[Rfam]
RNA: DUF2693 RNA
RNA sequence: GAUCAUUGACAUAUUUGAUAAGCGACAAAAACAAGAGAUAAAUCUGUGGGUGCAAUGCCCACUAGUGACUAAUCCUCGAAAGGGGUGGAGUCGUUAGCCCUAGGCCUAUUGCGCUAGGGGUGGAGCUGGGGAGUUUAACUAGUCCAGCCAUCGGAGAGCGAAGCUCCCUGACGACAC
Dot-bracket structure: .............................................(((((.......)))))...........................((((((((((((((..........))))))......((((..............)))).....((((.......))))))))))))..